A member of the RNA family "Plastid-rps18 3UTR RNA" from Cocos nucifera, 57 nucleotides long. Rfam 15.1 lists 1,462 matches to the family in 409 species. The literature on the family includes a 2023 paper in Plant Commun by Richter et al., "Retrograde signaling in plants: A critical review focusing on the GUN pathway and beyond". From the family's description: Plastid rps18 is a non-coding RNA (ncRNA) present in plastids. It was identified as a short stem-loop motif in the 3 prime untranslate region (3UTR) of rps18 gene.

RNA sequence: UGCAAGUAUUUUAUGAUUAAGAAGCAAUUGCUUCUUGUACAGAUUUGGUAAUUCUUC
Numbered sequence: 001u002g003c004a005a006g007u008a009u010u011u012u013a014u015g016a017u018u019a020a021g022a023a024g025c026a027a028u029u030g031c032u033u034c035u036u037g038u039a040c041a042g043a044u045u046u047g048g049u050a051a052u053u054c055u056u057c
Stems, first nucleotide, its partner, number of pairs: 018037008